[Rfam]
RNA sequence: CUCUUAUCCAGAGUGGUGGAGGGAACGGCCCGGUGAAGCCCGGCAACCGGCCGGGGCCUGCCUGAGCAGCGAGCGAGGCCCCUGCAGCGGUGCCAACGCCGUCCCCGCCUCCGGCGGGGGACGAUAAGGG
Numbered sequence: 001c002u003c004u005u006a007u008c009c010a011g012a013g014u015g016g017u018g019g020a021g022g023g024a025a026c027g028g029c030c031c032g033g034u035g036a037a038g039c040c041c042g043g044c045a046a047c048c049g050g051c052c053g054g055g056g057c058c059u060g061c062c063u064g065a066g067c068a069g070c071g072a073g074c075g076a077g078g079c080c081c082c083u084g085c086a087g088c089g090g091u092g093c094c095a096a097c098g099c100c101g102u103c104c105c106c107g108c109c110u111c112c113g114g115c116g117g118g119g120g121a122c123g124a125u126a127a128g129g130g
Stems, first nucleotide, its partner, number of pairs: 001130008013041001015040003021031003025102004042094004047090002050085002098122001103119006
Dot-bracket structure: ((((((((....(.(((...(((.[[[[)))......))))((((.((.((................................))...))))))...(]]]]((((((.....))))))..)))))))))
RNA: SAM riboswitch aptamer (S box leader)
Organism: bacterium HR24